Description: The record is a 152-nucleotide RNA from Macaca nemestrina, which matches "Small nucleolar RNA SNORD10" in Rfam. The source organism's lineage runs through Eukaryota, Opisthokonta, Chordata, Catarrhini and Macaca. It scores 55 bits against the family's covariance model. A reference for the family is Huttenhofer et al. (2001), "RNomics: an experimental approach that identifies 201 candidates for novel, small, non-messenger RNAs in mouse", EMBO J. By type it is a C/D-box small nucleolar RNA. The base pairs follow the family's consensus structure, which was predicted with WAR.
RNA sequence: CCUCUGUGAGGGAGCCCAUGCCGUGUCAUCUGAGCCUCCUGGCUUCCCUUGCAGUGCAGCCCAGGCAGUGGUCCUACUCUGUCCCAGGGCUGUCUUUCGCCUUGGCGGAACUACCUGGGCAAAGGAUCGAGUCCCUUUGUACUCUGGAGAGC
Dot-bracket structure: .(((.......................................((((.(((...................................................))).))))......................................))).